[Rfam]
RNA sequence: UGGUUAUAAAAUAACUUAUUUUGUAGCCACUUUGAGUUACGAUAAUUACUAUGCUAAUUCAUGAGAUUAUGGUAACUUCUUACUAUGUGAUUUACUAUAACUUUACGGUAAAUAUCUUCAUGUGUUAUAGUAACACAACUAUCAUAAAUAUGUAUUCACUCUAUCGUAAAUUAGUAUAUAAAAUUAUCGUAAAUGGUUAUAGUAAUACAACUAUCAUAAAUAUGUAUUCACUCUAUCGUAAAUUAGUAUAUAAAAUUAUCGUAAAUAGAGGUGGCUACAGAAUAACUUAUUCUGUAGCUG
Numbered sequence: 001u002g003g004u005u006a007u008a009a010a011a012u013a014a015c016u017u018a019u020u021u022u023g024u025a026g027c028c029a030c031u032u033u034g035a036g037u038u039a040c041g042a043u044a045a046u047u048a049c050u051a052u053g054c055u056a057a058u059u060c061a062u063g064a065g066a067u068u069a070u071g072g073u074a075a076c077u078u079c080u081u082a083c084u085a086u087g088u089g090a091u092u093u094a095c096u097a098u099a100a101c102u103u104u105a106c107g108g109u110a111a112a113u114a115u116c117u118u119c120a121u122g123u124g125u126u127a128u129a130g131u132a133a134c135a136c137a138a139c140u141a142u143c144a145u146a147a148a149u150a151u152g153u154a155u156u157c158a159c160u161c162u163a164u165c166g167u168a169a170a171u172u173a174g175u176a177u178a179u180a181a182a183a184u185u186a187u188c189g190u191a192a193a194u195g196g197u198u199a200u201a202g203u204a205a206u207a208c209a210a211c212u213a214u215c216a217u218a219a220a221u222a223u224g225u226a227u228u229c230a231c232u233c234u235a236u237c238g239u240a241a242a243u244u245a246g247u248a249u250a251u252a253a254a255a256u257u258a259u260c261g262u263a264a265a266u267a268g269a270g271g272u273g274g275c276u277a278c279a280g281a282a283u284a285a286c287u288u289a290u291u292c293u294g295u296a297g298c299u300g
Base pairs, nucleotide, nucleotide: 001300002299003298004297005296006295007294008293010291011290012289013288014287016285017284018283019282020281021280022279023278024277025276026275027274028273029272030271031270032269033268037264038263039262040261041260042259043258044257045256046255047254050250051249052248053247054246055245056244057243058242059241061239062238065237066236067235071231072229074227080219081218082217087214088213089212091210092209093204094203095202096201097200098199099198100197101196102195108188

A member of the RNA family "MIR6217 microRNA precursor family" from Miscanthus lutarioriparius, 300 nucleotides long. NCBI's taxonomy places the organism under Eukaryota, Streptophyta, Streptophytina, Petrosaviidae, Miscanthus. The family's consensus secondary structure was predicted with RNAalifold. It scores 137 bits against the family's covariance model.